This 233-nucleotide RNA sequence from Lachancea mirantina belongs to the Rfam family "Small nucleolar RNA snR63". Lineage of the source: Eukaryota > Fungi > Dikarya > Ascomycota > Lachancea. It scores 75 bits against the family's covariance model. Gene Ontology terms of the family: nucleolus and RNA processing. Clan: SNORD46 clan.
[Rfam]
RNA sequence: UUGAAUGAUGAUAAGAUUUUUUAUUUUCAGCCUACGGAGAACAGAGCGUUUCUCAGCAAGGAAGCGCUUUAAAACCAUCCCGUGUUGUCGACUUAUUGUUGGCGACACGUUCUGGCGAUUUGAUUUCCGGGUUUGGGUCGUUUUGAUGCGAGCUCGUGAUACUCGUCACCAGAAAUUGGGCGUUUUUUAAUGUGAUGAGUGGUUGAUAUUUAUUUGUCAUAGUUACACUGACC
Number, nucleotide and partner (000 for none) at each position: 001u000002u000003g000004a000005a220006u219007g218008a217009u216010g025011a024012u023013a022014a021015g020016a000017u000018u000019u000020u015021u014022u013023a012024u011025u010026u000027u206028c205029a204030g203031c202032c201033u000034a200035c199036g000037g000038a000039g000040a000041a193042c192043a191044g000045a068046g067047c066048g065049u064050u063051u062052c061053u060054c000055a000056g000057c000058a000059a000060g053061g052062a051063a050064g049065c048066g047067c046068u045069u000070u000071a186072a185073a184074a183075c182076c000077a000078u000079c000080c000081c109082g108083u107084g106085u105086u104087g103088u102089c101090g100091a099092c098093u000094u000095a000096u000097u000098g092099u091100u090101g089102g088103c087104g086105a085106c084107a083108c082109g081110u000111u000112c000113u000114g181115g000116c179117g000118a000119u000120u000121u159122g000123a000124u000125u000126u000127c000128c156129g155130g154131g153132u152133u151134u150135g149136g000137g147138u146139c145140g000141u000142u000143u000144u000145g139146a138147u137148g000149c135150g134151a133152g132153c131154u130155c129156g128157u000158g000159a121160u000161a000162c000163u000164c000165g000166u000167c000168a000169c000170c000171a000172g000173a000174a000175a000176u000177u000178g000179g116180g000181c114182g075183u074184u073185u072186u071187u000188u000189a000190a000191u043192g042193u041194g000195a000196u000197g000198a000199g035200u034201g032202g031203u030204u029205g028206a027207u000208a000209u000210u000211u000212a000213u000214u000215u000216g009217u008218c007219a006220u005221a000222g000223u000224u000225a000226c000227a000228c000229u000230g000231a000232c000233c000